[Rfam]
RNA: Bacterial large subunit ribosomal RNA, nucleotides 9 to 606
Organism: Desulfurobacterium indicum
RNA sequence: UGCUAAGGGCGCACGGUGGAUGCCUUGGCGCCAGCAGGCGAAGAAGGGCGUGGUAAGCUGCGAAAAGCCCCGGCGAGGCGCAAACGGCUGAAGACCCGGGGAUGCCCGAAUGGGGAAACCUGGCAGGCUUAAGGCCUGUCACCCUAUCGUUAGAUAGGGGGCGAGACCUCCUGAACUGAAACAUCUCAGUAGGGAGAGGAAAGGAAAUCAACAGAGACUCCCUUAGUAGCGGCGAGCGAACGGGGAAGAGCCCAAACCUGGUGAGUGUUAAAGCUGGCAGGCGUUGCUCACUGGGGGUAGUGGGACAUACCUGGAGGAGGCUGCCACCUCCUCGGGGAGUCACAAAAGCUCUGGGUAGCCGAAUGGUCUGGGAAGGCCAGCCGUAGAAGGUGAAAGCCCUGUAGGCGAAACCUGGAGCUCUCUCUGGGGUAUGAUCCCAAGUACCGCGGGACACGAGGAAUCCUGCGGGAAUCAGGGGGGACCACCCUCCAAGGCUAAGUACUCGCUGGCGACCGAUAGCGCAUAGUACCGAGAGGGAAAGGUGAAAAGAACCCCGGGAAGGGGAGUGAAAGAGAGCCUGAAACCGUGUGCCUACAAG
Numbered sequence: 001u002g003c004u005a006a007g008g009g010c011g012c013a014c015g016g017u018g019g020a021u022g023c024c025u026u027g028g029c030g031c032c033a034g035c036a037g038g039c040g041a042a043g044a045a046g047g048g049c050g051u052g053g054u055a056a057g058c059u060g061c062g063a064a065a066a067g068c069c070c071c072g073g074c075g076a077g078g079c080g081c082a083a084a085c086g087g088c089u090g091a092a093g094a095c096c097c098g099g100g101g102a103u104g105c106c107c108g109a110a111u112g113g114g115g116a117a118a119c120c121u122g123g124c125a126g127g128c129u130u131a132a133g134g135c136c137u138g139u140c141a142c143c144c145u146a147u148c149g150u151u152a153g154a155u156a157g158g159g160g161g162c163g164a165g166a167c168c169u170c171c172u173g174a175a176c177u178g179a180a181a182c183a184u185c186u187c188a189g190u191a192g193g194g195a196g197a198g199g200a201a202a203g204g205a206a207a208u209c210a211a212c213a214g215a216g217a218c219u220c221c222c223u224u225a226g227u228a229g230c231g232g233c234g235a236g237c238g239a240a241c242g243g244g245g246a247a248g249a250g251c252c253c254a255a256a257c258c259u260g261g262u263g264a265g266u267g268u269u270a271a272a273g274c275u276g277g278c279a280g281g282c283g284u285u286g287c288u289c290a291c292u293g294g295g296g297g298u299a300g301u302g303g304g305a306c307a308u309a310c311c312u313g314g315a316g317g318a319g320g321c322u323g324c325c326a327c328c329u330c331c332u333c334g335g336g337g338a339g340u341c342a343c344a345a346a347a348g349c350u351c352u353g354g355g356u357a358g359c360c361g362a363a364u365g366g367u368c369u370g371g372g373a374a375g376g377c378c379a380g381c382c383g384u385a386g387a388a389g390g391u392g393a394a395a396g397c398c399c400u401g402u403a404g405g406c407g408a409a410a411c412c413u414g415g416a417g418c419u420c421u422c423u424c425u426g427g428g429g430u431a432u433g434a435u436c437c438c439a440a441g442u443a444c445c446g447c448g449g450g451a452c453a454c455g456a457g458g459a460a461u462c463c464u465g466c467g468g469g470a471a472u473c474a475g476g477g478g479g480g481a482c483c484a485c486c487c488u489c490c491a492a493g494g495c496u497a498a499g500u501a502c503u504c505g506c507u508g509g510c511g512a513c514c515g516a517u518a519g520c521g522c523a524u525a526g527u528a529c530c531g532a533g534a535g536g537g538a539a540a541g542g543u544g545a546a547a548a549g550a551a552c553c554c555c556g557g558g559a560a561g562g563g564g565a566g567u568g569a570a571a572g573a574g575a576g577c578c579u580g581a582a583a584c585c586g587u588g589u590g591c592c593u594a595c596a597a598g
Base pairs, nucleotide, nucleotide: 007593008592009591010590011589012588013587014586015585016584022578023542024541027514028513029511030510031509032508033507034506035505036503037502038162039161046107047106048105049062050061051060068101069100070099071098072097073096077089078088079087112121113120114119122140123139124138125137126136127135128134142159143158144157145156146155147154148153167198168196169195170194171193172192178185179184208215209214218499219246220245221244222243223242229237230236249496250495251494252493257295258294259293260292261291262290263289264288265287266286267285302438303437304436307432308431309430310429311428345421347419348418349417350416351415352414353413354412355411356410358406359405360404364379365378366377367376368375382386388400389399390398444468445467446466447465448464449463450462451461475490476489477488478487479486529536530535552564553563554562555561